[Rfam]
RNA sequence: AGGCCCGGAGAGAGAGACAGGGUAUGAUCCGCAGCCUCCAUAGCAGCUGUUGAUCAGCCGUUGCCUCUUUCUUUCUCUCCA
Numbered sequence: 001a002g003g004c005c006c007g008g009a010g011a012g013a014g015a016g017a018c019a020g021g022g023u024a025u026g027a028u029c030c031g032c033a034g035c036c037u038c039c040a041u042a043g044c045a046g047c048u049g050u051u052g053a054u055c056a057g058c059c060g061u062u063g064c065c066u067c068u069u070u071c072u073u074u075c076u077c078u079c080c081a
Stems, first nucleotide, its partner, number of pairs: 008073009018063003022059001025056005032049004
Rfam assigns this 81-nucleotide RNA sequence from Myotis lucifugus to the family "mir-574 microRNA precursor family". The source organism's lineage runs through Eukaryota, Eumetazoa, Gnathostomata, Dipnotetrapodomorpha and Myotis. Its Rfam clan is "mir-574 microRNA precursor clan".